[Rfam]
RNA sequence: ACCGUCCUUAUCUUGGGGUUGCGCGACUGCUCGAUGAACGCGUGGUGAGGGCAGCCCUGCUAACGCCUAAAGCAACACACCAGCGCCCGCUUCGUGCGCGGUGCAGUAAAUUUAGGGCCA
Numbered sequence: 001a002c003c004g005u006c007c008u009u010a011u012c013u014u015g016g017g018g019u020u021g022c023g024c025g026a027c028u029g030c031u032c033g034a035u036g037a038a039c040g041c042g043u044g045g046u047g048a049g050g051g052c053a054g055c056c057c058u059g060c061u062a063a064c065g066c067c068u069a070a071a072g073c074a075a076c077a078c079a080c081c082a083g084c085g086c087c088c089g090c091u092u093c094g095u096g097c098g099c100g101g102u103g104c105a106g107u108a109a110a111u112u113u114a115g116g117g118c119c120a
Stems, first nucleotide, its partner, number of pairs: 006018004021060003027054006038046002077107002081103002085099002088096003